[Rfam]
RNA sequence: ACUGCUUUUCUUUGAUAUCCCCAUAUUGAGGAACCCGAUAGUCAAUCCAUUUUGGUUCGAGACUAUCGGGUUUUUUUAU
Numbered sequence: 001a002c003u004g005c006u007u008u009u010c011u012u013u014g015a016u017a018u019c020c021c022c023a024u025a026u027u028g029a030g031g032a033a034c035c036c037g038a039u040a041g042u043c044a045a046u047c048c049a050u051u052u053u054g055g056u057u058c059g060a061g062a063c064u065a066u067c068g069g070g071u072u073u074u075u076u077u078a079u
Stems, first nucleotide, its partner, number of pairs: 032072012
Description: This 79-nucleotide sequence from Photorhabdus laumondii belongs to the Rfam family "RybB RNA". On this family, see Wassarman et al., Genes Dev 2001: "Identification of novel small RNAs using comparative genomics and microarrays". The organism belongs to Photorhabdus laumondii subsp. laumondii, within Bacteria. This ncRNA was identified in a large scale screen of E. coli. The function of this short RNA is unknown. The exact 5' and 3' ends of this RNA are uncertain.